The family of this 73-nucleotide RNA sequence from Aedes aegypti is "mir-3 microRNA precursor family". Gene Ontology terms of the family: miRNA-mediated post-transcriptional gene silencing and RISC complex. The family has 28 seed sequences and 52 matches in Rfam 15.1. The family's consensus secondary structure was predicted with RNAalifold. Clan: mir-3 clan. The match comes from Rfam's covariance-model search (65 bits). On this family, see Aravin et al., Dev Cell 2003: "The small RNA profile during Drosophila melanogaster development".

RNA sequence: CUUAUGCGUCAAACUCCGUUCAGUUGGUGGAGUCAUUUUCCAAGUCAUCACUGGGCAUAGUUUGUCGCAUAAU
Numbered sequence: 001c002u003u004a005u006g007c008g009u010c011a012a013a014c015u016c017c018g019u020u021c022a023g024u025u026g027g028u029g030g031a032g033u034c035a036u037u038u039u040c041c042a043a044g045u046c047a048u049c050a051c052u053g054g055g056c057a058u059a060g061u062u063u064g065u066c067g068c069a070u071a072a073u
Base pairs, nucleotide, nucleotide: 005069006068007067008066010064011063012062013061014060018056019055021053022052023051024050